[Rfam]
RNA sequence: UGGUGGCCAUCAAAAGUAACAGCAUCUCCACUGGAAGUCAGUCCACAGUCCACAUGGAGUUGCUGUUACAUGUGAUGACUCC
Numbered sequence: 001u002g003g004u005g006g007c008c009a010u011c012a013a014a015a016g017u018a019a020c021a022g023c024a025u026c027u028c029c030a031c032u033g034g035a036a037g038u039c040a041g042u043c044c045a046c047a048g049u050c051c052a053c054a055u056g057g058a059g060u061u062g063c064u065g066u067u068a069c070a071u072g073u074g075a076u077g078a079c080u081c082c
Stems, first nucleotide, its partner, number of pairs: 010075003016069008026059005032052003
This 82-nucleotide sequence from Peromyscus maniculatus belongs to the Rfam family "mir-194 microRNA precursor family". On this family, see Lagos-Quintana et al., RNA 2003: "New microRNAs from mouse and human". The family has 46 seed sequences and 936 matches in Rfam 15.1. The organism belongs to Peromyscus maniculatus, within Eukaryota.